[Rfam]
Nucleotides: 074
Stems, first nucleotide, its partner, number of pairs: 002073005008067001010065010022053001024051007
Number, partner (000 for none) and nucleotide at each position: 001000u002073u003072a004071g005070u006069u007000u008067a009000u010065g011064u012063a013062a014061a015060c016059a017058u018057c019056c020000u021000a022053c023000a024051c025050u026049c027048a028047g029046c030045u031000a032000u033000a034000c035000u036000a037000u038000g039000u040000g041000a042000a043000u044000u045030g046029g047028c048027u049026g050025g051024g052000a053022g054000g055000u056019g057018g058017a059016u060015g061014u062013u063012u064011a065010c066000u067008u068000c069006a070005a071004u072003u073002g074000a
The family of this 74-nucleotide sequence from Geotrypetes seraphini is "mir-30 microRNA precursor family". Rfam links the family to the GO terms RISC complex and gene silencing by miRNA. This family consists of the mammalian microRNA (miRNA) precursor mir-30a.